[Rfam]
RNA: mir-2807 microRNA precursor family
RNA sequence: UUAACUCAAAUUUGUAUGGACUUGGAAUGUUUGCCUACGUUUGCCGCUAGGGUCGCUGUCCCAACUACAUACUAAUCUGAGUUA
Numbered sequence: 001u002u003a004a005c006u007c008a009a010a011u012u013u014g015u016a017u018g019g020a021c022u023u024g025g026a027a028u029g030u031u032u033g034c035c036u037a038c039g040u041u042u043g044c045c046g047c048u049a050g051g052g053u054c055g056c057u058g059u060c061c062c063a064a065c066u067a068c069a070u071a072c073u074a075a076u077c078u079g080a081g082u083u084a
Stems, first nucleotide, its partner, number of pairs: 008078001010076003014072003018068001020066001022064004027059003034052003039047002